[Rfam]
Group II catalytic intron D1-D4-7: a 149-nucleotide sequence from Tannerella sp. oral taxon 808.
RNA sequence: CCCGCUGUUCCGUCAGCGGUAGCCUACGAUAGGAUGCACCAAUAGCGAUAUGGUGUGUUGAGCCUAUCGGACAAGGUACACUUUCCCAAAAGGAUGAGACAGAACCGUGAGGGGACGUCAAGGGCGGUUAGUAUCGUACCGCCGAGUGG
Numbered sequence: 001c002c003c004g005c006u007g008u009u010c011c012g013u014c015a016g017c018g019g020u021a022g023c024c025u026a027c028g029a030u031a032g033g034a035u036g037c038a039c040c041a042a043u044a045g046c047g048a049u050a051u052g053g054u055g056u057g058u059u060g061a062g063c064c065u066a067u068c069g070g071a072c073a074a075g076g077u078a079c080a081c082u083u084u085c086c087c088a089a090a091a092g093g094a095u096g097a098g099a100c101a102g103a104a105c106c107g108u109g110a111g112g113g114g115a116c117g118u119c120a121a122g123g124g125c126g127g128u129u130a131g132u133a134u135c136g137u138a139c140c141g142c143c144g145a146g147u148g149g
Stems, first nucleotide, its partner, number of pairs: 002019006028068005033059008042051003082096001084094003098119003105112002124142005
For this family Rfam cites "The ins and outs of group II introns" (Bonen and Vogel, Trends Genet, 2001). Group II introns are found in rRNA, tRNA and mRNA of organelles in fungi, plants and protists, and also in mRNA in bacteria. Pairs were carried over by alignment from the consensus structure.